The family of this 516-nucleotide RNA from Colletotrichum higginsianum is "RNase MRP". Rfam 15.1 lists 3,510 matches to the family in 2,315 species. Clan: RNaseP clan. The match comes from Rfam's covariance-model search (88 bits).
RNA sequence: CCCUCGUCCGACAAAUCGCCAUCGAAGCUUACAAACAGAGACGUCCUUCUUUGAAAGGCGUCUCGGUCCUUUUGGACCAAGAACCAAGCUUUGGGAGAAAGUCCCCGGACACACGUUGUUCUACCCUCGGGUGGAAUAGAAACGCCGCGGAAACGCGCCGCCAUAGAAGCACAGCGGCUGACCUCCAAGACCUGCGUCCGGACACAAUGGCCUCUCUUCUCGCCCCGCCUCGUCGCUACAUCGUUGGUUGUUGGCUCUGCUCGAACCCCUAGUUUUUUGAUCUUGGGACCCUUUGGACGAAGAUAUGAGUCCGCGCCUGGGAUCGGGAGACUUGGUGUUUGGGUAGUGCUGGUGCCAUUGAUGACAGGAUGGCCGCGAGGGAGAGGCUGCUUGCCGGGCGAACUCAAGGGUUCGUCGGAGGAGUUUUUCGUCUAGAUCGAUAGGUAUGCGAUUGCCCGUCCUCCCGGUUCGCCGGGUUGGGCGUGUUACUCGAUGGGGCUUAUUCUUGGUGCGAGG
Numbered sequence: 001c002c003c004u005c006g007u008c009c010g011a012c013a014a015a016u017c018g019c020c021a022u023c024g025a026a027g028c029u030u031a032c033a034a035a036c037a038g039a040g041a042c043g044u045c046c047u048u049c050u051u052u053g054a055a056a057g058g059c060g061u062c063u064c065g066g067u068c069c070u071u072u073u074g075g076a077c078c079a080a081g082a083a084c085c086a087a088g089c090u091u092u093g094g095g096a097g098a099a100a101g102u103c104c105c106c107g108g109a110c111a112c113a114c115g116u117u118g119u120u121c122u123a124c125c126c127u128c129g130g131g132u133g134g135a136a137u138a139g140a141a142a143c144g145c146c147g148c149g150g151a152a153a154c155g156c157g158c159c160g161c162c163a164u165a166g167a168a169g170c171a172c173a174g175c176g177g178c179u180g181a182c183c184u185c186c187a188a189g190a191c192c193u194g195c196g197u198c199c200g201g202a203c204a205c206a207a208u209g210g211c212c213u214c215u216c217u218u219c220u221c222g223c224c225c226c227g228c229c230u231c232g233u234c235g236c237u238a239c240a241u242c243g244u245u246g247g248u249u250g251u252u253g254g255c256u257c258u259g260c261u262c263g264a265a266c267c268c269c270u271a272g273u274u275u276u277u278u279g280a281u282c283u284u285g286g287g288a289c290c291c292u293u294u295g296g297a298c299g300a301a302g303a304u305a306u307g308a309g310u311c312c313g314c315g316c317c318u319g320g321g322a323u324c325g326g327g328a329g330a331c332u333u334g335g336u337g338u339u340u341g342g343g344u345a346g347u348g349c350u351g352g353u354g355c356c357a358u359u360g361a362u363g364a365c366a367g368g369a370u371g372g373c374c375g376c377g378a379g380g381g382a383g384a385g386g387c388u389g390c391u392u393g394c395c396g397g398g399c400g401a402a403c404u405c406a407a408g409g410g411u412u413c414g415u416c417g418g419a420g421g422a423g424u425u426u427u428u429c430g431u432c433u434a435g436a437u438c439g440a441u442a443g444g445u446a447u448g449c450g451a452u453u454g455c456c457c458g459u460c461c462u463c464c465c466g467g468u469u470c471g472c473c474g475g476g477u478u479g480g481g482c483g484u485g486u487u488a489c490u491c492g493a494u495g496g497g498g499c500u501u502a503u504u505c506u507u508g509g510u511g512c513g514a515g516g
Base pairs, nucleotide, nucleotide: 002516003515004514005513006512007511008509009508010507011506014453015452016451017450018449019448022095023093024092025091026090027089028088038064039063040062041061042060043059044058099501100500101499103498104497105496106495130146131145132144133143385425386424387423391421392420394418395417396416455485457483458482459481460480
The source organism's lineage runs through Eukaryota, saccharomyceta, leotiomyceta, Glomerellales and Colletotrichum higginsianum. The family's consensus secondary structure is taken from published work.